[Rfam]
The family of this 141-nucleotide RNA sequence from Scaptodrosophila lebanonensis is "Small nucleolar RNA psi18S-841/snoR66". Clan: SNORA28 clan.
RNA sequence: CGCAAACGCACUCUGUGUCACAUUGAAAUAUGACCACAUGUGAUGACAAUUUGUUAGUUUGCAAAAACAAUAGAAGCUCCGAAUUAUCCAUGUGGCAAUGUUUUACCAAAUUGACUACAUUGAAAUCGAGCAUCACACUUA
Numbered sequence: 001c002g003c004a005a006a007c008g009c010a011c012u013c014u015g016u017g018u019c020a021c022a023u024u025g026a027a028a029u030a031u032g033a034c035c036a037c038a039u040g041u042g043a044u045g046a047c048a049a050u051u052u053g054u055u056a057g058u059u060u061g062c063a064a065a066a067a068c069a070a071u072a073g074a075a076g077c078u079c080c081g082a083a084u085u086a087u088c089c090a091u092g093u094g095g096c097a098a099u100g101u102u103u104u105a106c107c108a109a110a111u112u113g114a115c116u117a118c119a120u121u122g123a124a125a126u127c128g129a130g131c132a133u134c135a136c137a138c139u140u141a
Stems, first nucleotide, its partner, number of pairs: 002062006010054002014048003017044007025037001069139001073134002076131003080128002087123002090120006096113001098111002

psi18S-841 is a member of the H/ACA class of snoRNA. This family is responsible for guiding the modification of uridine 841 in Drosophila 18S rRNA to pseudouridine. The organism belongs to Scaptodrosophila, within Eukaryota. Gene Ontology terms of the family: RNA processing and nucleolus.